[Rfam]
RNA: Acido-Lenti-1 RNA
RNA sequence: CCCAGGGCUUCCACCCUGGGCUAUUUUCUGCCGCCCCUGUCGGGGCU
Numbered sequence: 001c002c003c004a005g006g007g008c009u010u011c012c013a014c015c016c017u018g019g020g021c022u023a024u025u026u027u028c029u030g031c032c033g034c035c036c037c038u039g040u041c042g043g044g045g046c047u
Base pairs, nucleotide, nucleotide: 001020002019003018004017005016006015007014033046034045035044036043037042